The record is a 93-nucleotide RNA sequence from Robinsoniella sp. RHS, which matches "THF (Tetrahydrofolate) riboswitch aptamer" in Rfam. On this family, see Ames et al., Chem Biol 2010: "A eubacterial riboswitch class that senses the coenzyme tetrahydrofolate". The organism belongs to Robinsoniella, within Bacteria. Gene Ontology term of the family: tetrahydrofolate metabolic process. Pairs were carried over by alignment from the consensus structure, which is taken from published work. Tetrahydrofolate (THF) riboswitch was first reported for Ames et al. as an RNA motif in 5' untranslated (5'-UTR)regions of folate transport and biosynthesis genes in Firmicutes genomes.
[Rfam]
RNA sequence: AGUAGAGUAGAUGUUAUACGUAAAGUGUCACCAAAGGGGGAGGCUUUUGGUGAACGAAGGAGACUUCCGCGUUAUAAGAUCGCUCCCGCUACU
Numbered sequence: 001a002g003u004a005g006a007g008u009a010g011a012u013g014u015u016a017u018a019c020g021u022a023a024a025g026u027g028u029c030a031c032c033a034a035a036g037g038g039g040g041a042g043g044c045u046u047u048u049g050g051u052g053a054a055c056g057a058a059g060g061a062g063a064c065u066u067c068c069g070c071g072u073u074a075u076a077a078g079a080u081c082g083c084u085c086c087c088g089c090u091a092c093u
Base pairs, nucleotide, nucleotide: 001093002092003091004090005089010081011080012079014077015076016075017074018073019071020070021069025055026054028053029052030051031050032049033048034047035046039087040086042084043083059068060067061066